RNA sequence: GCUAACAAUAGAGGCGCGAAUAGAGAUCAGUAAGUCAACGUGACGUGGCGGUAAUGACGUGGACUGAAAGGCCUAUUCGCCGAAAUGCAAAAGCAAUAGCCCAUUCUUUUGUGUUGGUUCUGGGCCUAACAGGUGCAGAACUGUCAUGAUUUAUCCAUUGAUAAUAUAUCUUCGGCGGUAAAUCAUGUUGAGCUAUUGCUGUC
Numbered sequence: 001g002c003u004a005a006c007a008a009u010a011g012a013g014g015c016g017c018g019a020a021u022a023g024a025g026a027u028c029a030g031u032a033a034g035u036c037a038a039c040g041u042g043a044c045g046u047g048g049c050g051g052u053a054a055u056g057a058c059g060u061g062g063a064c065u066g067a068a069a070g071g072c073c074u075a076u077u078c079g080c081c082g083a084a085a086u087g088c089a090a091a092a093g094c095a096a097u098a099g100c101c102c103a104u105u106c107u108u109u110u111g112u113g114u115u116g117g118u119u120c121u122g123g124g125c126c127u128a129a130c131a132g133g134u135g136c137a138g139a140a141c142u143g144u145c146a147u148g149a150u151u152u153a154u155c156c157a158u159u160g161a162u163a164a165u166a167u168a169u170c171u172u173c174g175g176c177g178g179u180a181a182a183u184c185a186u187g188u189u190g191a192g193c194u195a196u197u198g199c200u201g202u203c
Stems, first nucleotide, its partner, number of pairs: 006198006016080008033065004038060003084115010095104001116142007124134003145187011
Shown here is a 203-nucleotide RNA sequence from Budvicia aquatica, a member of the family "Lysine riboswitch aptamer". From the family's description: Riboswitches are metabolite binding domains within certain messenger RNAs that serve as precision sensors for their corresponding targets. The organism belongs to Budvicia, within Bacteria.